[Rfam]
RNA sequence: GGCGCGGGUAGGGCCGGGGGGCCAGCCGUCCCCUGAACCCGAAACCGGCUAUACGCGGGGGCCAGUAACCCGCGGGUAAACCCCGUUCAUCGGACCUGCACCGGGAAUUGCCGCCGGAUGAUCCUGCGCCGCCGCGGCAACCCGCCAGCAGGCCCUGUGCUCGAAGGGGCACAGGGACCUGCGGACCGCCGAACCGGGUUAGGCCCGGGAGGGAGCGGCCCUAAGGCGGGGCGGGGUGCGUGCGGCGUCGCGUAGGGUACGUAGGCCCCGCGAUGGAUCCGGUGAGCGGGCUGAACCGCGGGAUCCGCGCC
Numbered sequence: 001g002g003c004g005c006g007g008g009u010a011g012g013g014c015c016g017g018g019g020g021g022c023c024a025g026c027c028g029u030c031c032c033c034u035g036a037a038c039c040c041g042a043a044a045c046c047g048g049c050u051a052u053a054c055g056c057g058g059g060g061g062c063c064a065g066u067a068a069c070c071c072g073c074g075g076g077u078a079a080a081c082c083c084c085g086u087u088c089a090u091c092g093g094a095c096c097u098g099c100a101c102c103g104g105g106a107a108u109u110g111c112c113g114c115c116g117g118a119u120g121a122u123c124c125u126g127c128g129c130c131g132c133c134g135c136g137g138c139a140a141c142c143c144g145c146c147a148g149c150a151g152g153c154c155c156u157g158u159g160c161u162c163g164a165a166g167g168g169g170c171a172c173a174g175g176g177a178c179c180u181g182c183g184g185a186c187c188g189c190c191g192a193a194c195c196g197g198g199u200u201a202g203g204c205c206c207g208g209g210a211g212g213g214a215g216c217g218g219c220c221c222u223a224a225g226g227c228g229g230g231g232c233g234g235g236g237u238g239c240g241u242g243c244g245g246c247g248u249c250g251c252g253u254a255g256g257g258u259a260c261g262u263a264g265g266c267c268c269c270g271c272g273a274u275g276g277a278u279c280c281g282g283u284g285a286g287c288g289g290g291c292u293g294a295a296c297c298g299c300g301g302g303a304u305c306c307g308c309g310c311c
Stems, first nucleotide, its partner, number of pairs: 001311009012063004016034007038059004069302007077294001079292001081290001082288001084286001087285008096276003105267001110266003115261002118258001122257008130247007137239003141235004145184002148182005153176010186229005196221004204213003
Rfam assigns this 311-nucleotide sequence from Conexivisphaera calida to the family "Archaeal signal recognition particle RNA". The base pairs follow the family's consensus structure, which is taken from published work. The family is grouped with related families in Rfam's "SRP clan". The literature on the family includes a 2011 paper in Nat Struct Mol Biol by Hainzl et al., "Structural basis of signal-sequence recognition by the signal recognition particle". It scores 112 bits against the family's covariance model.